[Rfam]
RNA: mir-9256 microRNA precursor family
RNA sequence: GUAUAUUCUGAGUGGCCAGAUUAUUAUGAUUUCUAAAUGCAUAAUAAUCUGGCCACUCAGGGUAUAU
Numbered sequence: 001g002u003a004u005a006u007u008c009u010g011a012g013u014g015g016c017c018a019g020a021u022u023a024u025u026a027u028g029a030u031u032u033c034u035a036a037a038u039g040c041a042u043a044a045u046a047a048u049c050u051g052g053c054c055a056c057u058c059a060g061g062g063u064a065u066a067u
Stems, first nucleotide, its partner, number of pairs: 004064014019049010